[Rfam]
RNA sequence: CUGAGGAGAAGCCAUCACGAACAAGGUUCGUGAUUUUUCAUGGCUUCGACGACAUGUCAUAGAGAGGGACCCACGAAGUGGGAGAGUUGGCUAUGACUUACAAGUU
Numbered sequence: 001c002u003g004a005g006g007a008g009a010a011g012c013c014a015u016c017a018c019g020a021a022c023a024a025g026g027u028u029c030g031u032g033a034u035u036u037u038u039c040a041u042g043g044c045u046u047c048g049a050c051g052a053c054a055u056g057u058c059a060u061a062g063a064g065a066g067g068g069a070c071c072c073a074c075g076a077a078g079u080g081g082g083a084g085a086g087u088u089g090g091c092u093a094u095g096a097c098u099u100a101c102a103a104g105u106u
Base pairs, nucleotide, nucleotide: 008047009046010045011044012043013042016032017031018030019029020028021027056097057096058095060093061092
Notes
The record is a 106-nucleotide RNA from Coprococcus sp. CAG:782, which matches "GA-cis RNA" in Rfam. The family's consensus secondary structure is taken from published work. Lineage of the source: Bacteria > Bacillati > Bacillota > Clostridia > Coprococcus. It is annotated as a small RNA.